[Rfam]
RNA sequence: UUUAUUUUAUUUAUAAUUUAUUAUCUUAGUGAAGAGCGGAUGUUACCGUGCUAAGAGUUCUCGUAGAAUGAGUAUUGUUUAUAUGCGAUAGUUUAUAAAAUGUGCUUUAUUUAUAUUGUGAGAUAUAAAUACUAGAAAUAAAUUUUUUCAAGAUUAAGAGAAUGUGCUAGAUAAUAUUGCAAGUAAAAGGUUAGGUUCUGGUCAAUGGCACAAUAGAGAGUUCAACUUGAACGCUUAAUCCAGAUGCCCAUAGCGUAGAAAACUAUGAGGAAUUGUAUAAGUAUGGAAAUUCUAAUUAAGUCAUAUCAUAUCGUUGUUGAUUGUAAAGAAAUUUACUAUAAGACCAGUUUACUGAACAAGUAGCCUAAAUCAACGAUAAUUUUGAUGAAAUAAAGAAAAAUGGUUUUAAAAGGUAUUUUAAAAUAGAAAUAUAAAAAUUAUUUAAUUCUGAAUAAUAGGUGAAAGUUGCGGGUAAUCAAUCCCGUCAGAUUUUAAGUUUUUUAUUAAACAGCAGAAGAAGUUAAGGUUCGCUACCUGAAGAGUAUGCGUGAGCUGCUCCUAAUACUCAGACUUCUGUUAUCUGUGACUGAAUUCAUUGCGGCGAUAUUGUCUGGUAAGGCGAAGGUCUAGUAUAUUGUAAAUAAAAUA
Numbered sequence: 001u002u003u004a005u006u007u008u009a010u011u012u013a014u015a016a017u018u019u020a021u022u023a024u025c026u027u028a029g030u031g032a033a034g035a036g037c038g039g040a041u042g043u044u045a046c047c048g049u050g051c052u053a054a055g056a057g058u059u060c061u062c063g064u065a066g067a068a069u070g071a072g073u074a075u076u077g078u079u080u081a082u083a084u085g086c087g088a089u090a091g092u093u094u095a096u097a098a099a100a101u102g103u104g105c106u107u108u109a110u111u112u113a114u115a116u117u118g119u120g121a122g123a124u125a126u127a128a129a130u131a132c133u134a135g136a137a138a139u140a141a142a143u144u145u146u147u148u149c150a151a152g153a154u155u156a157a158g159a160g161a162a163u164g165u166g167c168u169a170g171a172u173a174a175u176a177u178u179g180c181a182a183g184u185a186a187a188a189g190g191u192u193a194g195g196u197u198c199u200g201g202u203c204a205a206u207g208g209c210a211c212a213a214u215a216g217a218g219a220g221u222u223c224a225a226c227u228u229g230a231a232c233g234c235u236u237a238a239u240c241c242a243g244a245u246g247c248c249c250a251u252a253g254c255g256u257a258g259a260a261a262a263c264u265a266u267g268a269g270g271a272a273u274u275g276u277a278u279a280a281g282u283a284u285g286g287a288a289a290u291u292c293u294a295a296u297u298a299a300g301u302c303a304u305a306u307c308a309u310a311u312c313g314u315u316g317u318u319g320a321u322u323g324u325a326a327a328g329a330a331a332u333u334u335a336c337u338a339u340a341a342g343a344c345c346a347g348u349u350u351a352c353u354g355a356a357c358a359a360g361u362a363g364c365c366u367a368a369a370u371c372a373a374c375g376a377u378a379a380u381u382u383u384g385a386u387g388a389a390a391u392a393a394a395g396a397a398a399a400a401u402g403g404u405u406u407u408a409a410a411a412g413g414u415a416u417u418u419u420a421a422a423a424u425a426g427a428a429a430u431a432u433a434a435a436a437a438u439u440a441u442u443u444a445a446u447u448c449u450g451a452a453u454a455a456u457a458g459g460u461g462a463a464a465g466u467u468g469c470g471g472g473u474a475a476u477c478a479a480u481c482c483c484g485u486c487a488g489a490u491u492u493u494a495a496g497u498u499u500u501u502u503a504u505u506a507a508a509c510a511g512c513a514g515a516a517g518a519a520g521u522u523a524a525g526g527u528u529c530g531c532u533a534c535c536u537g538a539a540g541a542g543u544a545u546g547c548g549u550g551a552g553c554u555g556c557u558c559c560u561a562a563u564a565c566u567c568a569g570a571c572u573u574c575u576g577u578u579a580u581c582u583g584u585g586a587c588u589g590a591a592u593u594c595a596u597u598g599c600g601g602c603g604a605u606a607u608u609g610u611c612u613g614g615u616a617a618g619g620c621g622a623a624g625g626u627c628u629a630g631u632a633u634a635u636u637g638u639a640a641a642u643a644a645a646a647u648a
Stems, first nucleotide, its partner, number of pairs: 007645002011641002016636001018634001022630001025055005036049004057163006071106005078099006085092002108131010135149004170612001174608001186597001189596001190588001193353002198347006205304005220232004239287004244282001247270002249267001251265003256294004312375005323336005357465001363460005447570004471483002487582003497507001511578001514575001516573002520566001522539001524536004617628004
ROOL RNA: a 648-nucleotide RNA. Rfam describes the family as follows. Firmicutes, Fusobacteria (1 example), Tenericutes (1 example). By type it is a small RNA. The family's consensus secondary structure is taken from published work. The sequence is in the family's curated seed alignment.